[Rfam]
RNA sequence: AAGCAGGAUUUAAGUACAGUAUAGCUGUUAAGUGCUAUGUUGUUGUUCCCCCUGCUAAAAACAGUGUUGUUUCUUAACUAUGCCUGGAUACCUGUAGCGGCCAGGGAUGCUUGGUCUCACGUAU
Numbered sequence: 001a002a003g004c005a006g007g008a009u010u011u012a013a014g015u016a017c018a019g020u021a022u023a024g025c026u027g028u029u030a031a032g033u034g035c036u037a038u039g040u041u042g043u044u045g046u047u048c049c050c051c052c053u054g055c056u057a058a059a060a061a062c063a064g065u066g067u068u069g070u071u072u073c074u075u076a077a078c079u080a081u082g083c084c085u086g087g088a089u090a091c092c093u094g095u096a097g098c099g100g101c102c103a104g105g106g107a108u109g110c111u112u113g114g115u116c117u118c119a120c121g122u123a124u
Base pairs, nucleotide, nucleotide: 003055004054005053006052007051016043017042018041019040020039021038022037023036024035025034083105084104085103086102

This 124-nucleotide RNA sequence from Nannospalax galili belongs to the Rfam family "Small nucleolar RNA SNORA63". Pairs were carried over by alignment from the consensus structure, which was predicted with PFOLD. About the family: E3 belongs to the H/ACA class of snoRNAs and is involved in the processing of eukaryotic pre-rRNA and has regions of complementarity to 18S rRNA. E3 is encoded in introns in the gene for protein synthesis initiation factor 4AII. The family has 8 seed sequences and 1,279 matches in Rfam 15.1. A reference for the family is Mishra and Eliceiri (1997), "Three small nucleolar RNAs that are involved in ribosomal RNA precursor processing", Proc Natl Acad Sci U S A.